[Rfam]
RNA sequence: GCGGUACGCGCGGGAGAGAGUGGGAAACCGCCGCCGAAGGAGCAACCGCCCCGGAAUCUCUCAGGCACCAGGGACCGCGCGUGGCCC
Numbered sequence: 001g002c003g004g005u006a007c008g009c010g011c012g013g014g015a016g017a018g019a020g021u022g023g024g025a026a027a028c029c030g031c032c033g034c035c036g037a038a039g040g041a042g043c044a045a046c047c048g049c050c051c052c053g054g055a056a057u058c059u060c061u062c063a064g065g066c067a068c069c070a071g072g073g074a075c076c077g078c079g080c081g082u083g084g085c086c087c
Base pairs, nucleotide, nucleotide: 006082007081008080009079010078011077012076013075020031021030022029023028033066034065035064036062037061040060041059042058046054047053

The family of this 87-nucleotide RNA from Sphingomonas sp. Leaf33 is "Glycine riboswitch aptamer".
The source organism's lineage runs through Bacteria, Pseudomonadati, Pseudomonadota, Sphingomonadales and Sphingomonas.
This family represents the bacterial glycine riboswitch.